[Rfam]
RNA: RNA Staph. aureus E (RoxS)
RNA sequence: AAGAAGUUGAUCACACAAACACAUACCCCUUGUUUGACCGUGAAAGAUUUCUCCCAUCCCCUUUUUGUUAUAUAAUAGAGAAAAAGACCAUGCUACCGUUUGCAUGGUCUUUUU
Numbered sequence: 001a002a003g004a005a006g007u008u009g010a011u012c013a014c015a016c017a018a019a020c021a022c023a024u025a026c027c028c029c030u031u032g033u034u035u036g037a038c039c040g041u042g043a044a045a046g047a048u049u050u051c052u053c054c055c056a057u058c059c060c061c062u063u064u065u066u067g068u069u070a071u072a073u074a075a076u077a078g079a080g081a082a083a084a085a086g087a088c089c090a091u092g093c094u095a096c097c098g099u100u101u102g103c104a105u106g107g108u109c110u111u112u113u114u
Base pairs, nucleotide, nucleotide: 003051004050005049006048007047008046011043012042013041014040016036017035018034019033020032021031070076084111085110086109087108088107089106090105091104092103093102